[Rfam]
Background:
This 251-nucleotide RNA sequence from Sulfuricaulis limicola belongs to the Rfam family "Group I catalytic intron". Its family is annotated with Group I intron splicing in the Gene Ontology. Rfam describes the family as follows. Group I catalytic introns are large self-splicing ribozymes. They catalyse their own excision from mRNA, tRNA and rRNA precursors in a wide range of organisms. The core secondary structure consists of 9 paired regions (P1-P9). These fold to essentially two domains - the P4-P6 domain (formed from the stacking of P5, P4, P6 and P6a helices) and the P3-P9 domain (formed from the P8, P3, P7 and P9 helices). The secondary structure mark-up for this family represents only this conserved core. Group I catalytic introns often have long ORFs inserted in loop regions. The window size for this search is chosen to minimise search time and catch the small examples. A larger window size will find more matches.
RNA sequence: GCAGGGGACUCAUCACAAUGGUGCGCUCGUGUUGAAAGAUACGAGAUGAACGGGAUGAAUUCAGGGAAACCUUCCAGCCAUGGCUGAUGGCAACCCUGAGCCAAGCCGGGAGUACACUCCCGGAAGGUGCAGAGACUACCUGAGGGCUUGAGCGCCCUUGAUCACAGGCUUGAGCGUCCCGCGCCCUAACUUCUCUUGCUGCAAUAGGGAUGAGGGCGGUGAGAUAGUCCACUCCUGUCGGAAACGGCGGG
Numbered sequence: 001g002c003a004g005g006g007g008a009c010u011c012a013u014c015a016c017a018a019u020g021g022u023g024c025g026c027u028c029g030u031g032u033u034g035a036a037a038g039a040u041a042c043g044a045g046a047u048g049a050a051c052g053g054g055a056u057g058a059a060u061u062c063a064g065g066g067a068a069a070c071c072u073u074c075c076a077g078c079c080a081u082g083g084c085u086g087a088u089g090g091c092a093a094c095c096c097u098g099a100g101c102c103a104a105g106c107c108g109g110g111a112g113u114a115c116a117c118u119c120c121c122g123g124a125a126g127g128u129g130c131a132g133a134g135a136c137u138a139c140c141u142g143a144g145g146g147c148u149u150g151a152g153c154g155c156c157c158u159u160g161a162u163c164a165c166a167g168g169c170u171u172g173a174g175c176g177u178c179c180c181g182c183g184c185c186c187u188a189a190c191u192u193c194u195c196u197u198g199c200u201g202c203a204a205u206a207g208g209g210a211u212g213a214g215g216g217c218g219g220u221g222a223g224a225u226a227g228u229c230c231a232c233u234c235c236u237g238u239c240g241g242a243a244a245c246g247g248c249g250g251g
Stems, first nucleotide, its partner, number of pairs: 005028001007027001009025001011023003032041001051181004056176002061099006070090002073087002100128002106122001132230001134229005184216004189211001191209004236249005